[Rfam]
RNA sequence: AUAGACACGGAGUGGCCAGAUGAUGAUGAUCUCUGAACGCAUAAUCAUCUGGCCACUCCGUGUCUGU
Numbered sequence: 001a002u003a004g005a006c007a008c009g010g011a012g013u014g015g016c017c018a019g020a021u022g023a024u025g026a027u028g029a030u031c032u033c034u035g036a037a038c039g040c041a042u043a044a045u046c047a048u049c050u051g052g053c054c055a056c057u058c059c060g061u062g063u064c065u066g067u
Stems, first nucleotide, its partner, number of pairs: 004064014019049006026042003
Dot-bracket structure: ...((((((((((((((.((((((.(((...........))).)))))).))))))))))))))...
The record is a 67-nucleotide sequence from Cnephaeus nilssonii, which matches "mir-9256 microRNA precursor family" in Rfam. Gene Ontology terms of the family: RISC complex and miRNA-mediated post-transcriptional gene silencing. The family has 8 seed sequences and 31,772 matches in Rfam 15.1.